[Rfam]
RNA: Small nucleolar RNA snoR97
RNA sequence: UAUUUAAAUGUGGUUUAGGGUCUGGAAAACUCGUGCAGUUAUGUGCUGUUAUCAGCUUCUUCUCUUGCAUCUUCGCGAGGAUGGAGUUAAAUAACGGCACUAAGUUA
Numbered sequence: 001u002a003u004u005u006a007a008a009u010g011u012g013g014u015u016u017a018g019g020g021u022c023u024g025g026a027a028a029a030c031u032c033g034u035g036c037a038g039u040u041a042u043g044u045g046c047u048g049u050u051a052u053c054a055g056c057u058u059c060u061u062c063u064c065u066u067g068c069a070u071c072u073u074c075g076c077g078a079g080g081a082u083g084g085a086g087u088u089a090a091a092u093a094a095c096g097g098c099a100c101u102a103a104g105u106u107a
Base pairs, nucleotide, nucleotide: 043100044099045098046097047096048095054088055087056086057085058084059083061080062079063078064077